[Rfam]
A member of the RNA family "Lysine riboswitch aptamer" from Thermobrachium celere, 178 nucleotides long.
The family's consensus secondary structure is taken from published work.
The match comes from Rfam's covariance-model search (130 bits).
RNA sequence: AGACAUGAUAGAGGCGCGGUGUCUAAGAGUACUAUAUCUGAGGCAAGCACGAUGAGGGUAUAGGAAAGGAGCCACCGCCGAAGCGUAGAGCUGAUGCUUUAAGGCUCUAUGGCUGGGGCUGUAUAGAAUAUAUACAGCACUGUCACAAACGCAUAGUUUGUGGAGAGCUAUCAUGCAA
Numbered sequence: 001a002g003a004c005a006u007g008a009u010a011g012a013g014g015c016g017c018g019g020u021g022u023c024u025a026a027g028a029g030u031a032c033u034a035u036a037u038c039u040g041a042g043g044c045a046a047g048c049a050c051g052a053u054g055a056g057g058g059u060a061u062a063g064g065a066a067a068g069g070a071g072c073c074a075c076c077g078c079c080g081a082a083g084c085g086u087a088g089a090g091c092u093g094a095u096g097c098u099u100u101a102a103g104g105c106u107c108u109a110u111g112g113c114u115g116g117g118g119c120u121g122u123a124u125a126g127a128a129u130a131u132a133u134a135c136a137g138c139a140c141u142g143u144c145a146c147a148a149a150c151g152c153a154u155a156g157u158u159u160g161u162g163g164a165g166a167g168c169u170a171u172c173a174u175g176c177a178a
Stems, first nucleotide, its partner, number of pairs: 006173006016078006023071002032063008082114003085110008115141002118138008143163007